[Rfam]
RNA sequence: UGGUGGAUUACCGGGCCAUGUCUCCUUGGGCAGAGGUGAUCAGAUUGCACACUUCACUUCAACCUCUUGCUCUAGCUUGUUCUCUCUGCCAAAGGAGAUUUGCCCAGCAAUCCACAU
Numbered sequence: 001u002g003g004u005g006g007a008u009u010a011c012c013g014g015g016c017c018a019u020g021u022c023u024c025c026u027u028g029g030g031c032a033g034a035g036g037u038g039a040u041c042a043g044a045u046u047g048c049a050c051a052c053u054u055c056a057c058u059u060c061a062a063c064c065u066c067u068u069g070c071u072c073u074a075g076c077u078u079g080u081u082c083u084c085u086c087u088g089c090c091a092a093a094g095g096a097g098a099u100u101u102g103c104c105c106a107g108c109a110a111u112c113c114a115c116a117u
Base pairs, nucleotide, nucleotide: 005113006112007111008110009109011107013105014104015103016102018100022097023096024095025094029090030089031088032087033086034085035084036083
The family of this 117-nucleotide RNA from Oryza sativa is "mir-399 microRNA precursor family". Lineage of the source: Eukaryota > Viridiplantae > Magnoliopsida > Mesangiospermae > Oryza sativa. The match comes from Rfam's covariance-model search (72 bits). On this family, see Jones-Rhoades and Bartel, Mol Cell 2004: "Computational Identification of Plant MicroRNAs and Their Targets, Including a Stress-Induced miRNA".